[Rfam]
RNA: Eukaryotic large subunit ribosomal RNA, nucleotides 1386 to 1875
RNA sequence: CCCUCCGAAGUUUCCCCCAGGAUAGCUGGAGCUCGAUCAGUUUUAUCAGGUAAAGCGAAUGAUUAGAGGUUCGGGGAGCUCAAAGCUCUUCACCUAUUCUCAAACUUUAAAUAGGUAAGACGUCCGGGUUGCUUAAUUGAACCCGGGCAUUCAAUGGGAGCUCCAAGUGGGCCAUUUUUGGUAAGCAGAACUGGCGAUGCGGGAUGAACCGAAAGCCGGCUUAAGGUGUCGGACUGCGCACUAACCUAGACCCCACAAAGGGUGUUGAUUGAUAUAGACAGCAGGACGGUGGUCAUGGAAGUCGAAACCCGCUAAGGAGUGUGUAACAACUCACCUGCCGAAUCAAUUAGCCCCGAAAAUGGAUGACGCUGAAGUGCGCGACCUAUAGCCGGCCAUGGGGGCAAGUGCGAGGCCCCCAUGAGUAGGAGGGCGUGGGCGUCGUGACGAAGCCCGCGGCGUGAGCCGGGGUGAAACGGCGCCUAGUGCAGAU
Numbered sequence: 001c002c003c004u005c006c007g008a009a010g011u012u013u014c015c016c017c018c019a020g021g022a023u024a025g026c027u028g029g030a031g032c033u034c035g036a037u038c039a040g041u042u043u044u045a046u047c048a049g050g051u052a053a054a055g056c057g058a059a060u061g062a063u064u065a066g067a068g069g070u071u072c073g074g075g076g077a078g079c080u081c082a083a084a085g086c087u088c089u090u091c092a093c094c095u096a097u098u099c100u101c102a103a104a105c106u107u108u109a110a111a112u113a114g115g116u117a118a119g120a121c122g123u124c125c126g127g128g129u130u131g132c133u134u135a136a137u138u139g140a141a142c143c144c145g146g147g148c149a150u151u152c153a154a155u156g157g158g159a160g161c162u163c164c165a166a167g168u169g170g171g172c173c174a175u176u177u178u179u180g181g182u183a184a185g186c187a188g189a190a191c192u193g194g195c196g197a198u199g200c201g202g203g204a205u206g207a208a209c210c211g212a213a214a215g216c217c218g219g220c221u222u223a224a225g226g227u228g229u230c231g232g233a234c235u236g237c238g239c240a241c242u243a244a245c246c247u248a249g250a251c252c253c254c255a256c257a258a259a260g261g262g263u264g265u266u267g268a269u270u271g272a273u274a275u276a277g278a279c280a281g282c283a284g285g286a287c288g289g290u291g292g293u294c295a296u297g298g299a300a301g302u303c304g305a306a307a308c309c310c311g312c313u314a315a316g317g318a319g320u321g322u323g324u325a326a327c328a329a330c331u332c333a334c335c336u337g338c339c340g341a342a343u344c345a346a347u348u349a350g351c352c353c354c355g356a357a358a359a360u361g362g363a364u365g366a367c368g369c370u371g372a373a374g375u376g377c378g379c380g381a382c383c384u385a386u387a388g389c390c391g392g393c394c395a396u397g398g399g400g401g402c403a404a405g406u407g408c409g410a411g412g413c414c415c416c417c418a419u420g421a422g423u424a425g426g427a428g429g430g431c432g433u434g435g436g437c438g439u440c441g442u443g444a445c446g447a448a449g450c451c452c453g454c455g456g457c458g459u460g461a462g463c464c465g466g467g468g469u470g471a472a473a474c475g476g477c478g479c480c481u482a483g484u485g486c487a488g489a490u
Base pairs, nucleotide, nucleotide: 001430002429003428004427005426006425011024013022014021015020027165028164029163030162031161032160033159041120042119043118044117045116046115047114053108054106055105060102061101062100065097067095068094069093073091074090075089076088077087079085122148123147124146125145126144127143128142129141130140171195172194173193174192176190177189178188179187180186200211201210202209215393216392217391218390219389221387225383226382227381234380236379239376240375241374260354261353262352264351265350266349267348268347269346270345271344272343273342281338282337283336284335285334287311288310289309293305294304312316317332321330322329394420395419396418397417398416399415400414401413402412431485433482434481435480436479437478438477439476440475441474442473449469450468455464456463457462